[Rfam]
RNA sequence: CAAAUAUAAUGGCAAACCCGUCGAAAGACGGCGACGCAAAGCUAUAGGGCCUUUCGCAUGGCAGCCAGCUGCGAUU
Numbered sequence: 001c002a003a004a005u006a007u008a009a010u011g012g013c014a015a016a017c018c019c020g021u022c023g024a025a026a027g028a029c030g031g032c033g034a035c036g037c038a039a040a041g042c043u044a045u046a047g048g049g050c051c052u053u054u055c056g057c058a059u060g061g062c063a064g065c066c067a068g069c070u071g072c073g074a075u076u
Base pairs, nucleotide, nucleotide: 012037013036018031019030020029021028022027040070041069042068043067047066048065049062050061051060